[Rfam]
RNA sequence: UAAUUAUUUUCGCUUAAUUCCGAUUGGAAGCGGGGGAACCGAACGCGGAUCAGUCCGCAGGGGUGAAUCCGGCAAGCCGAUUGCGGCUUCCUGGUAGGGCGACUCUCUGGCCCGAAUCCGUCAGCUAACCCCGUCAGCGAACAAAGGAGAGAUA
Numbered sequence: 001u002a003a004u005u006a007u008u009u010u011c012g013c014u015u016a017a018u019u020c021c022g023a024u025u026g027g028a029a030g031c032g033g034g035g036g037a038a039c040c041g042a043a044c045g046c047g048g049a050u051c052a053g054u055c056c057g058c059a060g061g062g063g064u065g066a067a068u069c070c071g072g073c074a075a076g077c078c079g080a081u082u083g084c085g086g087c088u089u090c091c092u093g094g095u096a097g098g099g100c101g102a103c104u105c106u107c108u109g110g111c112c113c114g115a116a117u118c119c120g121u122c123a124g125c126u127a128a129c130c131c132c133g134u135c136a137g138c139g140a141a142c143a144a145a146g147g148a149g150a151g152a153u154a
Base pairs, nucleotide, nucleotide: 011139012138013137014136018029019028020027030134031133032132033131034130035129040060061119062118063117069094070093071092072091097113098112099111100110
The family of this 154-nucleotide RNA sequence from Paenibacillus beijingensis is "c-di-AMP riboswitch aptamer (ydaO/yuaA leader)". The base pairs follow the family's consensus structure. It scores 95 bits against the family's covariance model.